[Rfam]
RNA sequence: GGUCGUUGAUGUGAUUUAAUAUUUGCUACUCUUGAUGGGAAAUGAAAUAUAUUCCCAUCUGAUGAUAUUUUCCACCAAGAUCUCUGAGGCC
Numbered sequence: 001g002g003u004c005g006u007u008g009a010u011g012u013g014a015u016u017u018a019a020u021a022u023u024u025g026c027u028a029c030u031c032u033u034g035a036u037g038g039g040a041a042a043u044g045a046a047a048u049a050u051a052u053u054c055c056c057a058u059c060u061g062a063u064g065a066u067a068u069u070u071u072c073c074a075c076c077a078a079g080a081u082c083u084c085u086g087a088g089g090c091c
Stems, first nucleotide, its partner, number of pairs: 001091004
This 91-nucleotide RNA sequence from Phtheirospermum japonicum belongs to the Rfam family "Small nucleolar RNA SNORD24".
The family's RNA type in Rfam is C/D-box small nucleolar RNA.
Taxonomically the source falls in Phtheirospermum (Eukaryota, Viridiplantae, Tracheophyta, Magnoliopsida).
Its family is annotated with nucleolus and RNA processing in the Gene Ontology.